[Rfam]
RNA sequence: AGAUAAUCCCAGGCGACUGGGAAAAGGUCGAGUCAGGCUGAUUGGCUCGGCCCCUCUGCUGCCGAACCGCAAGGUUCGAGCCCGGAGGCAAGAUUCACCAAGUCCUCUGGCUGUGUUCGCGCACGGCCAGUCAACGCGACAUAGGACUUCGGCAGUGAGGAGCGAUUAGAAGCCGCUCCGAGCUGAGUCAAGUAACUCAAGCUGGUUUCGAGCUCGAGUGAAUCGCAGUUACCGAGAAGGUAUCCGGUUGCUACUGCGCAUCAGCACGGGCGAAUGACUCUGGCGGUCCAGCAAAUGCGGGAUCUGCCAAACGAAAGACGCUGAAAGGCGCGACAAAAAGAGCGUUCGCACUGGGAAGGACACGUGAUCUCGGCAGGAUCCGUGAAAACCUUCCGAAACGCCAGCGAUGUUCAAAACGACACCGCGGGCCAGAGAAAGAAAAGCAACCUGAGAGAGCAGAGGCGAGACCCGUGGUACCGGGCGAACGUUCCGCCAAAAGCGGGAGCUGACCCGGCACUAAGCGGUCAAGACGCGGACAACAUUCUCAGACGCGCCUUGACCUGGUUCGCAGGCCGGUGGCGCAACCACCAGCCGAAGCGAGCUGAAAAGCCUCACUCGAAAUCCAGCGGCGGCAACGCCCUGGACGGCCCUGCUACGAGGCCGGACACUCCGCUUGCCGUGGAGAAUAGCGUCGGGAAGCCGGCAGCCCGCUUCGGCGUGGCGCCUAAUGCCGGCACGGGAAAGAGAGCGUGGCGCACUCC
Numbered sequence: 001a002g003a004u005a006a007u008c009c010c011a012g013g014c015g016a017c018u019g020g021g022a023a024a025a026g027g028u029c030g031a032g033u034c035a036g037g038c039u040g041a042u043u044g045g046c047u048c049g050g051c052c053c054c055u056c057u058g059c060u061g062c063c064g065a066a067c068c069g070c071a072a073g074g075u076u077c078g079a080g081c082c083c084g085g086a087g088g089c090a091a092g093a094u095u096c097a098c099c100a101a102g103u104c105c106u107c108u109g110g111c112u113g114u115g116u117u118c119g120c121g122c123a124c125g126g127c128c129a130g131u132c133a134a135c136g137c138g139a140c141a142u143a144g145g146a147c148u149u150c151g152g153c154a155g156u157g158a159g160g161a162g163c164g165a166u167u168a169g170a171a172g173c174c175g176c177u178c179c180g181a182g183c184u185g186a187g188u189c190a191a192g193u194a195a196c197u198c199a200a201g202c203u204g205g206u207u208u209c210g211a212g213c214u215c216g217a218g219u220g221a222a223u224c225g226c227a228g229u230u231a232c233c234g235a236g237a238a239g240g241u242a243u244c245c246g247g248u249u250g251c252u253a254c255u256g257c258g259c260a261u262c263a264g265c266a267c268g269g270g271c272g273a274a275u276g277a278c279u280c281u282g283g284c285g286g287u288c289c290a291g292c293a294a295a296u297g298c299g300g301g302a303u304c305u306g307c308c309a310a311a312c313g314a315a316a317g318a319c320g321c322u323g324a325a326a327g328g329c330g331c332g333a334c335a336a337a338a339a340g341a342g343c344g345u346u347c348g349c350a351c352u353g354g355g356a357a358g359g360a361c362a363c364g365u366g367a368u369c370u371c372g373g374c375a376g377g378a379u380c381c382g383u384g385a386a387a388a389c390c391u392u393c394c395g396a397a398a399c400g401c402c403a404g405c406g407a408u409g410u411u412c413a414a415a416a417c418g419a420c421a422c423c424g425c426g427g428g429c430c431a432g433a434g435a436a437a438g439a440a441a442a443g444c445a446a447c448c449u450g451a452g453a454g455a456g457c458a459g460a461g462g463c464g465a466g467a468c469c470c471g472u473g474g475u476a477c478c479g480g481g482c483g484a485a486c487g488u489u490c491c492g493c494c495a496a497a498a499g500c501g502g503g504a505g506c507u508g509a510c511c512c513g514g515c516a517c518u519a520a521g522c523g524g525u526c527a528a529g530a531c532g533c534g535g536a537c538a539a540c541a542u543u544c545u546c547a548g549a550c551g552c553g554c555c556u557u558g559a560c561c562u563g564g565u566u567c568g569c570a571g572g573c574c575g576g577u578g579g580c581g582c583a584a585c586c587a588c589c590a591g592c593c594g595a596a597g598c599g600a601g602c603u604g605a606a607a608a609g610c611c612u613c614a615c616u617c618g619a620a621a622u623c624c625a626g627c628g629g630c631g632g633c634a635a636c637g638c639c640c641u642g643g644a645c646g647g648c649c650c651u652g653c654u655a656c657g658a659g660g661c662c663g664g665a666c667a668c669u670c671c672g673c674u675u676g677c678c679g680u681g682g683a684g685a686a687u688a689g690c691g692u693c694g695g696g697a698a699g700c701c702g703g704c705a706g707c708c709c710g711c712u713u714c715g716g717c718g719u720g721g722c723g724c725c726u727a728a729u730g731c732c733g734g735c736a737c738g739g740g741a742a743a744g745a746g747a748g749c750g751u752g753g754c755g756c757a758c759u760c761c
Stems, first nucleotide, its partner, number of pairs: 008021005026052011061081002063078005100149007111126005117139005153185004159179005169209005193221001195219004200214003224258005230242004246448006282308005287302003319330004354394005362383003366380003408421004452617003459613004475516001477514005488504006525559005531553004564602006575589005622644005628639004645663005652690004668684006699735007706722002709718003746760003
Rfam assigns this 761-nucleotide RNA sequence to the family "MISL RNA".
The family's RNA type in Rfam is small RNA.